Annotation:
The family of this 147-nucleotide RNA sequence from Loigolactobacillus coryniformis is "glmS glucosamine-6-phosphate activated ribozyme aptamer". Taxonomically the source falls in Loigolactobacillus coryniformis subsp. coryniformis (Bacteria, Bacilli, Lactobacillales, Loigolactobacillus coryniformis).
RNA sequence: AAAAUCGGAAAAGCGCCUGGACCAUUUUUGUGGUUGACGAGGAUGGAGUCUAUCGAUAAUCGGCGGGUGACUCCAGGGUCUGCACUCUACAGAGCGACUGUUAAAAACAAGUGUAAGCUUGCAACAGAGCAGCGUUCACGCAGUUGG
Numbered sequence: 001a002a003a004a005u006c007g008g009a010a011a012a013g014c015g016c017c018u019g020g021a022c023c024a025u026u027u028u029u030g031u032g033g034u035u036g037a038c039g040a041g042g043a044u045g046g047a048g049u050c051u052a053u054c055g056a057u058a059a060u061c062g063g064c065g066g067g068u069g070a071c072u073c074c075a076g077g078g079u080c081u082g083c084a085c086u087c088u089a090c091a092g093a094g095c096g097a098c099u100g101u102u103a104a105a106a107a108c109a110a111g112u113g114u115a116a117g118c119u120u121g122c123a124a125c126a127g128a129g130c131a132g133c134g135u136u137c138a139c140g141c142a143g144u145u146g147g
Stems, first nucleotide, its partner, number of pairs: 020035006045074005053063004075088005092137005098132002108121005